[Rfam]
Shown here is a 380-nucleotide RNA from Candolleomyces aberdarensis, a member of the family "RNase MRP". A search with the family's covariance model found it, with a score of 105 bits. The family's RNA type in Rfam is ribozyme. The source organism's lineage runs through Eukaryota, Opisthokonta, Agaricomycotina, Agaricomycetes and Candolleomyces.
RNA sequence: UUGCCGUCUGAAGAAUCGCUGUCGCAGUUCUCGUACAGAAAGCCUUGUGCUUUCACUUUCUACUGUGGGGAAAGUCCCCGGAGGCGCAGAGCAUAUCCUCGUCCUGCUAGGGAAAGCAACCGGCUCUAAGCUCGCUGGUGAGGGGCGGGGAUGGCGGAAAUGAUUUACAUGGUGCUUUUUUCGCGCUAUGUUCCCUUCUGUCCACUCUGCUGUCUGCUCCAACGCUUGGCGGGUCGAUCAAGGCGUGGUGCGCGAAGAUACGAGCGUGUCUCGCUCGGCUCGUUGGGUAGAGGACGGGCAAUCUGUUGCUCAUAGGCAUAGUUAUGCGAUUGUAGACCUUUCGUGGUCGUCAACUCAAUGGGGCUCACUCUCAUUCGGCA
Dot-bracket structure: .(((((..(((..((((((..(((((((..........(((((.....)))))........)))))))....[[.[[[[..........................................................................................((((((.......)))))).(.(.....((((((...((((............................................................................)))).))))))...).)......................))))))...((((......))))...........]]]]]].....)))..)))))